[Rfam]
About this RNA: Small nucleolar RNA SNORA74: a 196-nucleotide sequence from Oryzias melastigma. The organism belongs to Oryzias, within Eukaryota. Clan: SNORA74 clan. Rfam classes the family as an H/ACA-box small nucleolar RNA. The match comes from Rfam's covariance-model search (75 bits). Pairs were carried over by alignment from the consensus structure, which was predicted with PFOLD. Gene Ontology terms of the family: RNA processing and nucleolus.

RNA sequence: UCCAGCGCUCAGUCAGCUGUCCAGUUUGUGUCUGGAACGGCGUUACAGUGCUGGUAGAGGAAGCUCCUGGAUCGGCCUCACUGUGGCAGGUUCUGUUUUAGGACCUGCUGCUGCUGAGCGGUCGCAGGGCUCAGCCCAGUGAGAGUGGACUGUUCCGGUUCUGCUGCGGGACGGUCCUAGUACAGGGCUAUACAAA
Numbered sequence: 001u002c003c004a005g006c007g008c009u010c011a012g013u014c015a016g017c018u019g020u021c022c023a024g025u026u027u028g029u030g031u032c033u034g035g036a037a038c039g040g041c042g043u044u045a046c047a048g049u050g051c052u053g054g055u056a057g058a059g060g061a062a063g064c065u066c067c068u069g070g071a072u073c074g075g076c077c078u079c080a081c082u083g084u085g086g087c088a089g090g091u092u093c094u095g096u097u098u099u100a101g102g103a104c105c106u107g108c109u110g111c112u113g114c115u116g117a118g119c120g121g122u123c124g125c126a127g128g129g130c131u132c133a134g135c136c137c138a139g140u141g142a143g144a145g146u147g148g149a150c151u152g153u154u155c156c157g158g159u160u161c162u163g164c165u166g167c168g169g170g171a172c173g174g175u176c177c178u179a180g181u182a183c184a185g186g187g188c189u190a191u192a193c194a195a196a
Stems, first nucleotide, its partner, number of pairs: 002054008012046002016041005022034003026030001063130004070123002077118003081113001083111004088106007133189005147177003151173007